[Rfam]
Bacteriophage Diversity-Generating Retroelement RNA: a 129-nucleotide RNA. The family's RNA type in Rfam is small RNA. Pairs were carried over by alignment from the consensus structure, which is taken from published work.
RNA sequence: GCUUGGCACUUACCACAUGGCGGUGUCAGCCGAUCACAAUAGGUGGUCAGCUUGGUCAUCCUCCUUCGGGAAACACACUACAGGAUUCGGUAGAACGCGGAGUAGCCCAGAGCGAAACGCGGAGCCGGU
Numbered sequence: 001g002c003u004u005g006g007c008a009c010u011u012a013c014c015a016c017a018u019g020g021c022g023g024u025g026u027c028a029g030c031c032g033a034u035c036a037c038a039a040u041a042g043g044u045g046g047u048c049a050g051c052u053u054g055g056u057c058a059u060c061c062u063c064c065u066u067c068g069g070g071a072a073a074c075a076c077a078c079u080a081c082a083g084g085a086u087u088c089g090g091u092a093g094a095a096c097g098c099g100g101a102g103u104a105g106c107c108c109a110g111a112g113c114g115a116a117a118c119g120c121g122g123a124g125c126c127g128g129u
Base pairs, nucleotide, nucleotide: 001030002029004028005027006026007025008024009023010022013020014019062071063070064069085129087128088127089126090125091124096121097120098119099118105113106112